The family of this 143-nucleotide RNA from Flavobacterium sp. GT3R68 is "Flavo-1 RNA". The organism belongs to Flavobacterium, within Bacteria.
RNA sequence: CAUUAGCCCGGAUGGAAGUGGAAAGCCUUUUACAGGAAACGUCCCUUUUUGUAAAAGAAAAAAAGCGACCAUAGAAGCUCUUUUAUCUUUUCUACAAAAACGGACGUUUUCAAGAAAGCUUGCAACGGACAGCCGGAUUAGCU
Dot-bracket structure: ........(((.((...((...((((..(((..................................................................................))).))))...))...)).)))........
Numbered sequence: 001c002a003u004u005a006g007c008c009c010g011g012a013u014g015g016a017a018g019u020g021g022a023a024a025g026c027c028u029u030u031u032a033c034a035g036g037a038a039a040c041g042u043c044c045c046u047u048u049u050u051g052u053a054a055a056a057g058a059a060a061a062a063a064a065g066c067g068a069c070c071a072u073a074g075a076a077g078c079u080c081u082u083u084u085a086u087c088u089u090u091u092c093u094a095c096a097a098a099a100a101c102g103g104a105c106g107u108u109u110u111c112a113a114g115a116a117a118g119c120u121u122g123c124a125a126c127g128g129a130c131a132g133c134c135g136g137a138u139u140a141g142c143u
Stems, first nucleotide, its partner, number of pairs: 009135003013131002018126002023121004029116003